Shown here is a 54-nucleotide sequence from Hucho hucho, a member of the family "UnaL2 LINE 3' element". The match comes from Rfam's covariance-model search (61 bits). Taxonomically the source falls in Hucho (Eukaryota, Gnathostomata, Euteleostomi, Euteleosteomorpha). It is annotated as a cis-regulatory element. Its family is annotated with transposition, RNA-mediated in the Gene Ontology. Rfam describes the family as follows. The eel long interspersed element (LINE) UnaL2 and its partner short interspersed element (SINE) share a conserved 3' tail containing a stem-loop that is critical for their retrotransposition.
RNA sequence: UGCACGCAUGACUGUAACUCUCUUUGGAUAAAAGUGUCUGCUAAAUGCCAUUGU
Numbered sequence: 001u002g003c004a005c006g007c008a009u010g011a012c013u014g015u016a017a018c019u020c021u022c023u024u025u026g027g028a029u030a031a032a033a034g035u036g037u038c039u040g041c042u043a044a045a046u047g048c049c050a051u052u053g054u
Stems, first nucleotide, its partner, number of pairs: 013043001014041003020036001022034004